Shown here is a 124-nucleotide sequence from Wenzhouxiangella limi, a member of the family "Group II catalytic intron D1-D4-2". The family has 144 seed sequences and 1,231 matches in Rfam 15.1. The base pairs follow the family's consensus structure. Taxonomically the source falls in Wenzhouxiangella (Bacteria, Pseudomonadati, Pseudomonadota, Chromatiales).
[Rfam]
RNA sequence: GGCGGAACCGACCCGCCGGAGUCUGUCUGCAGGGACCGGCUCCAAACCACCCUCGAGCGGCAUUGGCUGAAGACCGUUGUCGUGAGCGUCGAGGGAGAAGGCGCAUCCAUGUGGUGUGUCAGGU
Numbered sequence: 001g002g003c004g005g006a007a008c009c010g011a012c013c014c015g016c017c018g019g020a021g022u023c024u025g026u027c028u029g030c031a032g033g034g035a036c037c038g039g040c041u042c043c044a045a046a047c048c049a050c051c052c053u054c055g056a057g058c059g060g061c062a063u064u065g066g067c068u069g070a071a072g073a074c075c076g077u078u079g080u081c082g083u084g085a086g087c088g089u090c091g092a093g094g095g096a097g098a099a100g101g102c103g104c105a106u107c108c109a110u111g112u113g114g115u116g117u118g119u120c121a122g123g124u
Base pairs, nucleotide, nucleotide: 001017002016003015004014005013018043019042020041021040022039023038025036026035027034028033048123050095051094053092054091055090056089057083058082060080061079062078064076065075066074100120101119102118103117104116105115